[Rfam]
RNA: mir-454 microRNA precursor family
RNA sequence: GCAUGGGAUUGGAAGUCCUGGAACCCUAUCAGUAUUGUCUCUGCUGUCCACUUUGUUCAGAGUAGUGCAAUAUUUCUUAUAGGGCUUCAGUUUUUGGGAUAA
Numbered sequence: 001g002c003a004u005g006g007g008a009u010u011g012g013a014a015g016u017c018c019u020g021g022a023a024c025c026c027u028a029u030c031a032g033u034a035u036u037g038u039c040u041c042u043g044c045u046g047u048c049c050a051c052u053u054u055g056u057u058c059a060g061a062g063u064a065g066u067g068c069a070a071u072a073u074u075u076c077u078u079a080u081a082g083g084g085c086u087u088c089a090g091u092u093u094u095u096g097g098g099a100u101a102a
Base pairs, nucleotide, nucleotide: 020088021087022086024084025083026082027081028080029079031074032073033072034071035070036069037068038067041065042064043063044062045061